The record is a 122-nucleotide sequence from Candidatus Brocadia sinica, which matches "c-di-GMP-I-GGC riboswitch aptamer" in Rfam. The family is grouped with related families in Rfam's "c-di-GMP_I riboswitch clan". The source organism's lineage runs through Bacteria, Pseudomonadati, Candidatus Brocadiia, Candidatus Brocadia and Candidatus Brocadia sinica.
[Rfam]
RNA sequence: CACGAUAAAGGCAAACUCUGAGUAAUCGGGGGGCGCAAAGUAACGGGUCUUUUAAACACACAGGGAUGUAGUUUAAGACGAUACCUUAUCCUUUAGUGAAAAAGAUAGCCUUACUGCCGAAG
Numbered sequence: 001c002a003c004g005a006u007a008a009a010g011g012c013a014a015a016c017u018c019u020g021a022g023u024a025a026u027c028g029g030g031g032g033g034c035g036c037a038a039a040g041u042a043a044c045g046g047g048u049c050u051u052u053u054a055a056a057c058a059c060a061c062a063g064g065g066a067u068g069u070a071g072u073u074u075a076a077g078a079c080g081a082u083a084c085c086u087u088a089u090c091c092u093u094u095a096g097u098g099a100a101a102a103a104g105a106u107a108g109c110c111u112u113a114c115u116g117c118c119g120a121a122g
Stems, first nucleotide, its partner, number of pairs: 001122001003119002011036002016031006034108001039115004045110002047106007